[Rfam]
RNA sequence: GAGUUCUGGUCAUUGGCGAGGUUAACUAUUAAAUUAGGUAGCCGAAGGGAAACCGAUUGUCCGCAGUUUUUACGAGGGACAAGGUGUGCUCGCCUUUAGUCAAUGGUGCGGAGACCCGAAGCCGGUCGAUCUAUGCCUGAGCAGCUUGAAGCCUUCCGAAGGGGAGGUGGAGGAGCUAACCAGUUCUGAUGUGCAAAUCGUUUGGAUGACUUGGGUAUAGGGGUGAAAGGCCAAUCUAGGCCGGAUAUAGCUGGUU
Numbered sequence: 001g002a003g004u005u006c007u008g009g010u011c012a013u014u015g016g017c018g019a020g021g022u023u024a025a026c027u028a029u030u031a032a033a034u035u036a037g038g039u040a041g042c043c044g045a046a047g048g049g050a051a052a053c054c055g056a057u058u059g060u061c062c063g064c065a066g067u068u069u070u071u072a073c074g075a076g077g078g079a080c081a082a083g084g085u086g087u088g089c090u091c092g093c094c095u096u097u098a099g100u101c102a103a104u105g106g107u108g109c110g111g112a113g114a115c116c117c118g119a120a121g122c123c124g125g126u127c128g129a130u131c132u133a134u135g136c137c138u139g140a141g142c143a144g145c146u147u148g149a150a151g152c153c154u155u156c157c158g159a160a161g162g163g164g165a166g167g168u169g170g171a172g173g174a175g176c177u178a179a180c181c182a183g184u185u186c187u188g189a190u191g192u193g194c195a196a197a198u199c200g201u202u203u204g205g206a207u208g209a210c211u212u213g214g215g216u217a218u219a220g221g222g223g224u225g226a227a228a229g230g231c232c233a234a235u236c237u238a239g240g241c242c243g244g245a246u247a248u249a250g251c252u253g254g255u256u
Stems, first nucleotide, its partner, number of pairs: 005112004009107009020043004026037003047054002059080004066073002083094004115254002118251001122244006131220011142208001144176004151168007180205004186200001188199002222232003
About this RNA: Archaeal large subunit ribosomal RNA: a 256-nucleotide part of an RNA from Candidatus Methanomethylophilus sp. 1R26. Lineage of the source: Archaea > Methanobacteriati > Thermoplasmatota > Thermoplasmata > Methanomethylophilus. Pairs were carried over by alignment from the consensus structure, which is taken from published work. It scores 2645 bits against the family's covariance model.